[Rfam]
RNA sequence: CGAGAGUUUGAGGCUAUAGCAGAAGCGCUCAUGGCAUAGCCAUCUCAGAUUCCAAUAAAUCUGUAAAUUCUGCU
Number, nucleotide and partner (000 for none) at each position: 001c000002g000003a000004g000005a000006g000007u000008u000009u000010g000011a000012g041013g040014c039015u038016a000017u000018a074019g073020c072021a071022g070023a069024a068025g037026c000027g035028c000029u000030c000031a000032u000033g000034g000035c027036a000037u025038a015039g014040c013041c012042a000043u000044c000045u000046c063047a062048g061049a060050u059051u058052c000053c000054a000055a000056u000057a000058a051059a050060u049061c048062u047063g046064u000065a000066a000067a000068u024069u023070c022071u021072g020073c019074u018